[Rfam]
Description:
This 76-nucleotide RNA from Triplophysa tibetana belongs to the Rfam family "mir-92 microRNA precursor family". The family's consensus secondary structure was predicted with PFOLD. On this family, see Mourelatos et al., Genes Dev 2002: "miRNPs: a novel class of ribonucleoproteins containing numerous microRNAs". It scores 61 bits against the family's covariance model.
RNA sequence: CUUUCUUUGCAGGUUGGGAUGGGCCGCAAUGCUCUGAAUUGCAAGUAUUGCACUUGUCCCGGCCUGUGAAGAGCUC
Numbered sequence: 001c002u003u004u005c006u007u008u009g010c011a012g013g014u015u016g017g018g019a020u021g022g023g024c025c026g027c028a029a030u031g032c033u034c035u036g037a038a039u040u041g042c043a044a045g046u047a048u049u050g051c052a053c054u055u056g057u058c059c060c061g062g063c064c065u066g067u068g069a070a071g072a073g074c075u076c
Stems, first nucleotide, its partner, number of pairs: 004072003009067006016060005022054002026051008

This family represents the microRNA precursor mir-92. Human miR-92 has two predicted hairpin precursor sequences: mir-92-1 on chromosome 13 and mir-92-2 on chromosome X. miR-92 has also been cloned from mouse embryonic stem cells.
Its Rfam clan is "mir-92 microRNA precursor clan".